[Rfam]
RNA: Group II catalytic intron D1-D4-6
RNA sequence: UAAGUCCUACGAAGAAGGUUUAGCCAACGACUGCGGCCGCAAGCAGAGGUGCGAGGGCGGUAACGUCAUCGUGCUAACCGUCUGUGCGGAGGGGAACGCAGGCCAGCCAUAAAGCCCCGAAAUCAGCACUUCCGUGUGUCGAUCUAGUGUGGACAGGGGGAAGUCAAUAUCGUUCGGACCCUUUAUCGGCGAGUUGCGGGCAGACACGGCGGAGUCACAGACCA
Numbered sequence: 001u002a003a004g005u006c007c008u009a010c011g012a013a014g015a016a017g018g019u020u021u022a023g024c025c026a027a028c029g030a031c032u033g034c035g036g037c038c039g040c041a042a043g044c045a046g047a048g049g050u051g052c053g054a055g056g057g058c059g060g061u062a063a064c065g066u067c068a069u070c071g072u073g074c075u076a077a078c079c080g081u082c083u084g085u086g087c088g089g090a091g092g093g094g095a096a097c098g099c100a101g102g103c104c105a106g107c108c109a110u111a112a113a114g115c116c117c118c119g120a121a122a123u124c125a126g127c128a129c130u131u132c133c134g135u136g137u138g139u140c141g142a143u144c145u146a147g148u149g150u151g152g153a154c155a156g157g158g159g160g161a162a163g164u165c166a167a168u169a170u171c172g173u174u175c176g177g178a179c180c181c182u183u184u185a186u187c188g189g190c191g192a193g194u195u196g197c198g199g200g201c202a203g204a205c206a207c208g209g210c211g212g213a214g215u216c217a218c219a220g221a222c223c224a
Stems, first nucleotide, its partner, number of pairs: 010035002013032002018028003021192001023190002037092002040089001043085004048079001049075001050073005056067004114215002117212003132209006138165001140163001143159003170203001172201005178195001180193001